[Rfam]
RNA sequence: UGCACGCCGCCAGGAGAGAGCCGCGCCCCGAGCCGGCCGCCGAAGGCGCAGAGGCCCCCUUGAAACGGGGUUUCGAACGCUCAGGCAAAAGGACUGGCAAACGUCG
Number, nucleotide and partner (000 for none) at each position: 001u000002g000003c000004a000005c000006g000007c000008c000009g098010c097011c096012a095013g094014g000015a000016g000017a000018g000019a000020g037021c036022c035023g034024c000025g000026c000027c000028c000029c000030g000031a000032g000033c000034c023035g022036g021037c020038c000039g086040c085041c084042g082043a081044a000045g000046g080047c079048g078049c000050a000051g074052a073053g072054g071055c070056c069057c068058c067059c000060u000061u000062g000063a000064a000065a000066c000067g058068g057069g056070g055071u054072u053073u052074c051075g000076a000077a000078c048079g047080c046081u043082c042083a000084g041085g040086c039087a000088a000089a000090a000091g000092g000093a000094c013095u012096g011097g010098c009099a000100a000101a000102c000103g000104u000105c000106g000